Rfam assigns this 295-nucleotide RNA from Alphacoronavirus rhinolophi to the family "Alphacoronavirus 3'UTR". On this family, see Madhugiri et al., Adv Virus Res 2016: "Coronavirus cis-Acting RNA Elements". Its family is annotated with viral RNA genome replication in the Gene Ontology. Its Rfam clan is "Coronavirus 3' UTR".

RNA sequence: ACCUUUUUGAGCAUUUUUUUAUUAACAUUGGCAAAUUUUGCAGAUUUGUUUGACAUACAAUCCCUAGCUUUGCUUGUGGAUUUAGUCUCAUACACAAUGGUAAGCACGUAAUUAUGCUAGUAUGAGUAGAGUAUAAUUAUAUUGAGUCCUAUAGACCAACGCAGUUAACUACAUGUCCGGUGUGGCGGAGUAAUCAAAGAUCCGCUUGACGAGCCUAUAUGGAAGAGCCGUCACACCUCGUAUGUAUGUUGCUGCUAGUAGUUGUUAAUUAGUUGAUUCUUUGACAGUGAUACAC
Numbered sequence: 001a002c003c004u005u006u007u008u009g010a011g012c013a014u015u016u017u018u019u020u021a022u023u024a025a026c027a028u029u030g031g032c033a034a035a036u037u038u039u040g041c042a043g044a045u046u047u048g049u050u051u052g053a054c055a056u057a058c059a060a061u062c063c064c065u066a067g068c069u070u071u072g073c074u075u076g077u078g079g080a081u082u083u084a085g086u087c088u089c090a091u092a093c094a095c096a097a098u099g100g101u102a103a104g105c106a107c108g109u110a111a112u113u114a115u116g117c118u119a120g121u122a123u124g125a126g127u128a129g130a131g132u133a134u135a136a137u138u139a140u141a142u143u144g145a146g147u148c149c150u151a152u153a154g155a156c157c158a159a160c161g162c163a164g165u166u167a168a169c170u171a172c173a174u175g176u177c178c179g180g181u182g183u184g185g186c187g188g189a190g191u192a193a194u195c196a197a198a199g200a201u202c203c204g205c206u207u208g209a210c211g212a213g214c215c216u217a218u219a220u221g222g223a224a225g226a227g228c229c230g231u232c233a234c235a236c237c238u239c240g241u242a243u244g245u246a247u248g249u250u251g252c253u254g255c256u257a258g259u260a261g262u263u264g265u266u267a268a269u270u271a272g273u274u275g276a277u278u279c280u281u282u283g284a285c286a287g288u289g290a291u292a293c294a295c
Base pairs, nucleotide, nucleotide: 087104088103090101091100108140109139110138111137112136113135114134115133116132117131118130144279145278146277147276148275154263155262156261161255162254163253164252165251172244173243174242175241176240179237180236181235182234184232185231186230187229188228205213206212214222215221
It scores 217 bits against the family's covariance model.
From the family's description: The 3' UTR of alphacoronaviruses consists of two small hairpins (PK-SL2) which can form an alternate conformation (PK-SL1) where the loop region of the second hairpin interacts with the stem of the first hairpin. PK-SL2 has been confirmed in HCoV-229E and HCoV-NL63 by in vitro structure probing experiments.